A member of the RNA family "Acido-Lenti-1 RNA", 46 nucleotides long. Pairs were carried over by alignment from the consensus structure, which is taken from published work. Rfam classes the family as a small RNA.
[Rfam]
RNA sequence: CCAUGGGCUCACGCCCACGGCUAAGUGCUGGCGCGGCUACGCCGCU
Numbered sequence: 001c002c003a004u005g006g007g008c009u010c011a012c013g014c015c016c017a018c019g020g021c022u023a024a025g026u027g028c029u030g031g032c033g034c035g036g037c038u039a040c041g042c043c044g045c046u
Stems, first nucleotide, its partner, number of pairs: 001020002004017005033045005

The match comes from Rfam's covariance-model search (44 bits).